About this RNA:
The record is an 88-nucleotide RNA sequence from Aceticella autotrophica, which matches "c-di-GMP-I riboswitch aptamer" in Rfam. From the family's description: GEMM was predicted in a large-scale screen for bacterial structured RNA regulatory elements.
[Rfam]
RNA sequence: UCCUGAAAAAGGCAAACUUAGAGAAAUCUAAGGACGCAAAAUCAUGGACCUAAGGUUUUUAAAUGACUAUGGUUGCCAGAUUGCCAGG
Numbered sequence: 001u002c003c004u005g006a007a008a009a010a011g012g013c014a015a016a017c018u019u020a021g022a023g024a025a026a027u028c029u030a031a032g033g034a035c036g037c038a039a040a041a042u043c044a045u046g047g048a049c050c051u052a053a054g055g056u057u058u059u060u061a062a063a064u065g066a067c068u069a070u071g072g073u074u075g076c077c078a079g080a081u082u083g084c085c086a087g088g
Stems, first nucleotide, its partner, number of pairs: 012037002017032006040082004045078003048073003055067003

The match comes from Rfam's covariance-model search (83 bits). The base pairs follow the family's consensus structure, which is taken from published work.